The record is a 108-nucleotide sequence from Pasteurellaceae bacterium 15-036681, which matches "t44 RNA" in Rfam. It is annotated as a small RNA. Rfam describes the family as follows. This family consists of a number of bacterial RNA genes of between 135 and 170 bases in length.

RNA sequence: UUAUUUUUAACACUAAAUCACACACAUAUCACAAACUAGCUAUCGGGGUGCUGGCGGAUUCAAUGGUGAGUCUCAAGGUCGAUUGAUUAGGGUAUGUGGAGGCUAAAC
Numbered sequence: 001u002u003a004u005u006u007u008u009a010a011c012a013c014u015a016a017a018u019c020a021c022a023c024a025c026a027u028a029u030c031a032c033a034a035a036c037u038a039g040c041u042a043u044c045g046g047g048g049u050g051c052u053g054g055c056g057g058a059u060u061c062a063a064u065g066g067u068g069a070g071u072c073u074c075a076a077g078g079u080c081g082a083u084u085g086a087u088u089a090g091g092g093u094a095u096g097u098g099g100a101g102g103c104u105a106a107a108c
Base pairs, nucleotide, nucleotide: 023098024097025096026095027094028093029092030091037089038088039087041085042083043082044081045080050079051078052077